RNA: Fluoride riboswitch aptamer (crcB RNA motif)
Organism: Sporomusa sphaeroides
RNA sequence: AAAGUUUGGGGCGAUGGAGUUCGCCCGAAUCCUGGCUGGCCAGGUGAUGACUCCUACCGUAAA
Numbered sequence: 001a002a003a004g005u006u007u008g009g010g011g012c013g014a015u016g017g018a019g020u021u022c023g024c025c026c027g028a029a030u031c032c033u034g035g036c037u038g039g040c041c042a043g044g045u046g047a048u049g050a051c052u053c054c055u056a057c058c059g060u061a062a063a
Base pairs, nucleotide, nucleotide: 010025011024012023013022016054017053018052019051020050021049031044032043033042034041